RNA: mir-1272 microRNA precursor family
Organism: Pan troglodytes
RNA sequence: CCAGAUCAGAUCUGGGUGCGAUGAUGAUGGCAGCAAAUUCUGAAAACGUGCUCAGUGUCUUUAUAACAGGAAAGUCGUAAACUUAGAAAUGUAGGCUGCAGCUCGUGUGCUCUGUGGUCUGGGCUGGU
Numbered sequence: 001c002c003a004g005a006u007c008a009g010a011u012c013u014g015g016g017u018g019c020g021a022u023g024a025u026g027a028u029g030g031c032a033g034c035a036a037a038u039u040c041u042g043a044a045a046a047c048g049u050g051c052u053c054a055g056u057g058u059c060u061u062u063a064u065a066a067c068a069g070g071a072a073a074g075u076c077g078u079a080a081a082c083u084u085a086g087a088a089a090u091g092u093a094g095g096c097u098g099c100a101g102c103u104c105g106u107g108u109g110c111u112c113u114g115u116g117g118u119c120u121g122g123g124c125u126g127g128u
Base pairs, nucleotide, nucleotide: 001127002126003125004124007121008120009119010118011117012116014112015111016110017109018108019107021106022105023104024103030099031098032097033096034095038088039087040086041085042084043083046078047077048076050075051074052073056068057067058066